Group II catalytic intron D1-D4-2: a 115-nucleotide RNA from Methylomonas sp. DH-1.
Group II introns are found in rRNA, tRNA and mRNA of organelles in fungi, plants and protists, and also in mRNA in bacteria.
For this family Rfam cites "The ins and outs of group II introns" (Bonen and Vogel, Trends Genet, 2001).
The base pairs follow the family's consensus structure.
A search with the family's covariance model found it, with a score of 103 bits.
Rfam 15.1 lists 1,231 matches to the family in 625 species.
RNA sequence: GAGGGUAGGUCCCUCGCCAUCGGCUUGCAGGAGUAGGUGGCAAACCACCGUAAGCGGCGUGCGUCAAAAGCGCGGGUCGUGAGCGUUACGGAAAAGGCGUCUUGAGGCGUCAGGU
Numbered sequence: 001g002a003g004g005g006u007a008g009g010u011c012c013c014u015c016g017c018c019a020u021c022g023g024c025u026u027g028c029a030g031g032a033g034u035a036g037g038u039g040g041c042a043a044a045c046c047a048c049c050g051u052a053a054g055c056g057g058c059g060u061g062c063g064u065c066a067a068a069a070g071c072g073c074g075g076g077u078c079g080u081g082a083g084c085g086u087u088a089c090g091g092a093a094a095a096g097g098c099g100u101c102u103u104g105a106g107g108c109g110u111c112a113g114g115u
Stems, first nucleotide, its partner, number of pairs: 001015005016041006023034004046114001048091006054080002057077002061073004096111006